[Rfam]
RNA sequence: CCCGCGGCUAGACGGAAAGACCCCGUGAACCUUUACUGUAGGCUGGUAUUGGGCUGUGGUGUAUCUUGUGUAGGAUAGGUGGGAGGCUGUGAAGCCGGGACGCCAGUUCCGGUGGAGCCGCCCUUGAAAUACCACCCUGGAUACACUUUAGUUCUAACUCCGAUUCCCGUAAACCGGGCGGAGGACAGUGCCAGCUGGGCAGUUUGACUGGGGCGGUCUCCUCCUAAAAAGUAACGGAGGAGUCCAAAGGUACCCUCAGCCUGGUCGGCAAUCAGGCGUUGAGCGCAAAGGUAGACAGGGUGCUUAACUGCGAGACCGAUGGGUCGAGCAGAUACGAAAGUAGGGCUUAGUGAUCCGGUGGUCCCGGAUGGAAGGGCCAUCGCUCAACAGACAAAAGGUACUCCGGGGAUAACAGGCUUAUCGCGCCCGAGCGUCCAUAGCGGCGGCGCGGUUUGGCACCUCGAUGUCGGCUCAUCGCAUCCUGGGGGUGGAGAAGCUCCCAAGGGUUUGGCUGUUCGCCAAUGAAAGCGGUACGUGAGCUGGGUUCAGACCGUCGUGAGACAGGUCGGUCCCUAUCUACCGUGGGCGCA
Numbered sequence: 001c002c003c004g005c006g007g008c009u010a011g012a013c014g015g016a017a018a019g020a021c022c023c024c025g026u027g028a029a030c031c032u033u034u035a036c037u038g039u040a041g042g043c044u045g046g047u048a049u050u051g052g053g054c055u056g057u058g059g060u061g062u063a064u065c066u067u068g069u070g071u072a073g074g075a076u077a078g079g080u081g082g083g084a085g086g087c088u089g090u091g092a093a094g095c096c097g098g099g100a101c102g103c104c105a106g107u108u109c110c111g112g113u114g115g116a117g118c119c120g121c122c123c124u125u126g127a128a129a130u131a132c133c134a135c136c137c138u139g140g141a142u143a144c145a146c147u148u149u150a151g152u153u154c155u156a157a158c159u160c161c162g163a164u165u166c167c168c169g170u171a172a173a174c175c176g177g178g179c180g181g182a183g184g185a186c187a188g189u190g191c192c193a194g195c196u197g198g199g200c201a202g203u204u205u206g207a208c209u210g211g212g213g214c215g216g217u218c219u220c221c222u223c224c225u226a227a228a229a230a231g232u233a234a235c236g237g238a239g240g241a242g243u244c245c246a247a248a249g250g251u252a253c254c255c256u257c258a259g260c261c262u263g264g265u266c267g268g269c270a271a272u273c274a275g276g277c278g279u280u281g282a283g284c285g286c287a288a289a290g291g292u293a294g295a296c297a298g299g300g301u302g303c304u305u306a307a308c309u310g311c312g313a314g315a316c317c318g319a320u321g322g323g324u325c326g327a328g329c330a331g332a333u334a335c336g337a338a339a340g341u342a343g344g345g346c347u348u349a350g351u352g353a354u355c356c357g358g359u360g361g362u363c364c365c366g367g368a369u370g371g372a373a374g375g376g377c378c379a380u381c382g383c384u385c386a387a388c389a390g391a392c393a394a395a396a397g398g399u400a401c402u403c404c405g406g407g408g409a410u411a412a413c414a415g416g417c418u419u420a421u422c423g424c425g426c427c428c429g430a431g432c433g434u435c436c437a438u439a440g441c442g443g444c445g446g447c448g449c450g451g452u453u454u455g456g457c458a459c460c461u462c463g464a465u466g467u468c469g470g471c472u473c474a475u476c477g478c479a480u481c482c483u484g485g486g487g488g489u490g491g492a493g494a495a496g497c498u499c500c501c502a503a504g505g506g507u508u509u510g511g512c513u514g515u516u517c518g519c520c521a522a523u524g525a526a527a528g529c530g531g532u533a534c535g536u537g538a539g540c541u542g543g544g545u546u547c548a549g550a551c552c553g554u555c556g557u558g559a560g561a562c563a564g565g566u567c568g569g570u571c572c573c574u575a576u577c578u579a580c581c582g583u584g585g586g587c588g589c590a
Base pairs, nucleotide, nucleotide: 001586002585003584004583005582006581007580010578011577012576014573015572022407023406024405025404027403028402029399030398031397032396033395035203036202037201038200042195043194044193045192046191047190048189051154052153053152054151055150056149058147059146060145061144062143063142064141065140066139068137078136079135080134081133082132085119086118087117094113095112096111097110098109099108100107101106158183159182160181164180166178167177168176169175206218207217208216209215219241220240221239222238223237224236242388244345245344250303251302252301253300254299255298256282257281259277260276261275262274263273264272283292284291308331309330310329311328314325315324316323333342334341335340356382357381358380359379360378361377362376364375365374416457417456418455420454421451422450423449424448425447426446427445431441432440468543469541470540471539472538473535474532475531476530477529478528481506482505484501485500486499487498488497489496508522509521510520511519512518549567550566551565552564553562554561555560
Rfam assigns this 590-nucleotide part of an RNA from Thermogutta terrifontis to the family "Bacterial large subunit ribosomal RNA". A search with the family's covariance model found it, with a score of 2771 bits. The base pairs follow the family's consensus structure, which is taken from published work.